[Rfam]
Shown here is an 81-nucleotide sequence from Lentihominibacter hominis, a member of the family "ZMP/ZTP riboswitch aptamer (pfl RNA motif)". The base pairs follow the family's consensus structure, which is taken from published work. A search with the family's covariance model found it, with a score of 59 bits. Taxonomically the source falls in Lentihominibacter (Bacteria, Bacillati, Peptostreptococcales, Anaerovoracaceae).

RNA sequence: UUGAAAUCAUAUAACUGACGGAUAAUGUGGAGCACCACAUGGAGUAUGAUAGAUAUUUAGCCGGCCGUCUGGGCAGAAAAG
Numbered sequence: 001u002u003g004a005a006a007u008c009a010u011a012u013a014a015c016u017g018a019c020g021g022a023u024a025a026u027g028u029g030g031a032g033c034a035c036c037a038c039a040u041g042g043a044g045u046a047u048g049a050u051a052g053a054u055a056u057u058u059a060g061c062c063g064g065c066c067g068u069c070u071g072g073g074c075a076g077a078a079a080a081g
Base pairs, nucleotide, nucleotide: 006050007049008048009047010046011045012044015041017069018068019067020066021065027038028037029036030035058076060074061073062072